[Rfam]
RNA sequence: CCACUCUUGUUUCUCUUCAGAUCGUAUAAAUCUUUCGCCUUUUACUAAAGAUUUCCGUGGAGAGGAACAGCAAGAGUAUAACCCAAUUUUUUGUUGCCCUGCUUUUAGUGGGGCU
Numbered sequence: 001c002c003a004c005u006c007u008u009g010u011u012u013c014u015c016u017u018c019a020g021a022u023c024g025u026a027u028a029a030a031u032c033u034u035u036c037g038c039c040u041u042u043u044a045c046u047a048a049a050g051a052u053u054u055c056c057g058u059g060g061a062g063a064g065g066a067a068c069a070g071c072a073a074g075a076g077u078a079u080a081a082c083c084c085a086a087u088u089u090u091u092u093g094u095u096g097c098c099c100u101g102c103u104u105u106u107a108g109u110g111g112g113g114c115u
Stems, first nucleotide, its partner, number of pairs: 003077004009068011028054008096114006
The record is a 115-nucleotide RNA sequence from Stegastes partitus, which matches "U5 spliceosomal RNA" in Rfam. The base pairs follow the family's consensus structure, which is taken from published work. It is annotated as a spliceosomal small nuclear RNA. It scores 96 bits against the family's covariance model. The organism belongs to Stegastes, within Eukaryota.